[Rfam]
RNA sequence: AACUUAAACCGAAUAUUCCUUCAUAUAUCCUCGAAAAUACGGUUCGAGAGUCUCUACCGGGAUACCUUAAAUAUCCUGACUAUGAAGGCAGAGAAUAGAUAU
Numbered sequence: 001a002a003c004u005u006a007a008a009c010c011g012a013a014u015a016u017u018c019c020u021u022c023a024u025a026u027a028u029c030c031u032c033g034a035a036a037a038u039a040c041g042g043u044u045c046g047a048g049a050g051u052c053u054c055u056a057c058c059g060g061g062a063u064a065c066c067u068u069a070a071a072u073a074u075c076c077u078g079a080c081u082a083u084g085a086a087g088g089c090a091g092a093g094a095a096u097a098g099a100u101a102u
Stems, first nucleotide, its partner, number of pairs: 018088008030048006058078007